[Rfam]
RNA sequence: UCAAAGGCGUUGAAGAGGAGUAGUAACUCCUAUUCCUGUCUCAGAGAGCUGGCGGUUGCUGAAAGCCAGUACAGGAUAAGGGUGAACUCGCCUUGGAGCCGUUGCGAUGAAGCAAACAGUCUAGUCGUGAUCGUGAGCCUGCGUAAAGGGUUUAACUAAGGGUCCUGAGGAUCGGACCGAAACAGGGUGGUACCGCGUAAGCUACAGGCUUUCGCCCCUGAA
Numbered sequence: 001u002c003a004a005a006g007g008c009g010u011u012g013a014a015g016a017g018g019a020g021u022a023g024u025a026a027c028u029c030c031u032a033u034u035c036c037u038g039u040c041u042c043a044g045a046g047a048g049c050u051g052g053c054g055g056u057u058g059c060u061g062a063a064a065g066c067c068a069g070u071a072c073a074g075g076a077u078a079a080g081g082g083u084g085a086a087c088u089c090g091c092c093u094u095g096g097a098g099c100c101g102u103u104g105c106g107a108u109g110a111a112g113c114a115a116a117c118a119g120u121c122u123a124g125u126c127g128u129g130a131u132c133g134u135g136a137g138c139c140u141g142c143g144u145a146a147a148g149g150g151u152u153u154a155a156c157u158a159a160g161g162g163u164c165c166u167g168a169g170g171a172u173c174g175g176a177c178c179g180a181a182a183c184a185g186g187g188u189g190g191u192a193c194c195g196c197g198u199a200a201g202c203u204a205c206a207g208g209c210u211u212u213c214g215c216c217c218c219u220g221a222a
Stems, first nucleotide, its partner, number of pairs: 007099002015094004026083004031078001037073003048070006102130007132143003161178005167172001184219004195215003199211004
RNA: T-box leader
Organism: Desulfuromonas acetoxidans